[Rfam]
About this RNA:
This 264-nucleotide part of an RNA from Candidatus Methanogaster sp. belongs to the Rfam family "Archaeal large subunit ribosomal RNA". Its family is annotated with structural constituent of ribosome and ribosome in the Gene Ontology. The organism belongs to Candidatus Methanogaster, within Archaea. The base pairs follow the family's consensus structure, which is taken from published work. The family has 91 seed sequences and 2,955 matches in Rfam 15.1.
RNA sequence: GAGUGUAUCUUGGUGGCGAGACUAACGCUUGAAAAGCGGAAGUCGAAGCGAAAGCAACACGCGCGUAGCCCGUAAGGGCAUGGCGCGGGGUAUACAAGUGCCCGAAGUCACUGGGGUACGACCCGAAGCCGGGCGAUCUAUGCGUGGGCAGGUUGAAGCGUGGCGAAAGCCGCGUGGAGGACCGAAAGCGGUACUGAUAUGCAAAUCGUUCGCGUGACCUGUGUAUAGGGGUGAAAGGCCAAUCGAGCCCGGCAUCAUCUGGUU
Numbered sequence: 001g002a003g004u005g006u007a008u009c010u011u012g013g014u015g016g017c018g019a020g021a022c023u024a025a026c027g028c029u030u031g032a033a034a035a036g037c038g039g040a041a042g043u044c045g046a047a048g049c050g051a052a053a054g055c056a057a058c059a060c061g062c063g064c065g066u067a068g069c070c071c072g073u074a075a076g077g078g079c080a081u082g083g084c085g086c087g088g089g090g091u092a093u094a095c096a097a098g099u100g101c102c103c104g105a106a107g108u109c110a111c112u113g114g115g116g117u118a119c120g121a122c123c124c125g126a127a128g129c130c131g132g133g134c135g136a137u138c139u140a141u142g143c144g145u146g147g148g149c150a151g152g153u154u155g156a157a158g159c160g161u162g163g164c165g166a167a168a169g170c171c172g173c174g175u176g177g178a179g180g181a182c183c184g185a186a187a188g189c190g191g192u193a194c195u196g197a198u199a200u201g202c203a204a205a206u207c208g209u210u211c212g213c214g215u216g217a218c219c220u221g222u223g224u225a226u227a228g229g230g231g232u233g234a235a236a237g238g239c240c241a242a243u244c245g246a247g248c249c250c251g252g253c254a255u256c257a258u259c260u261g262g263u264u
Stems, first nucleotide, its partner, number of pairs: 005119013020044004026038004048055002061086004068079004089102004122262002125259001129252006138228011149216001151183004158175007188213004193209002196207002230240003